RNA sequence: GGAGCCAUGGCAGAGUGGUAAUGCACUGGACUCGAAAUCCAGCGAACCGUGUAAAGCGGCGCAGGGGUUCAAAUCCCUUGACUCCU
Numbered sequence: 001g002g003a004g005c006c007a008u009g010g011c012a013g014a015g016u017g018g019u020a021a022u023g024c025a026c027u028g029g030a031c032u033c034g035a036a037a038u039c040c041a042g043c044g045a046a047c048c049g050u051g052u053a054a055a056g057c058g059g060c061g062c063a064g065g066g067g068u069u070c071a072a073a074u075c076c077c078u079u080g081a082c083u084c085c086u
Base pairs, nucleotide, nucleotide: 001085002084003083004082006080007079010024011023012022026042027041028040029039030038063078064077065076066075067074

The record is an 86-nucleotide RNA sequence from Lactococcus allomyrinae, which matches "tRNA" in Rfam. Rfam describes the family as follows. Transfer RNA (tRNA) molecules are approximately 80 nucleotides in length. The family's RNA type in Rfam is transfer RNA. NCBI's taxonomy places the organism under Bacteria, Bacillati, Bacillota, Streptococcaceae, Lactococcus. Rfam links the family to the GO term triplet codon-amino acid adaptor activity. A search with the family's covariance model found it, with a score of 50 bits.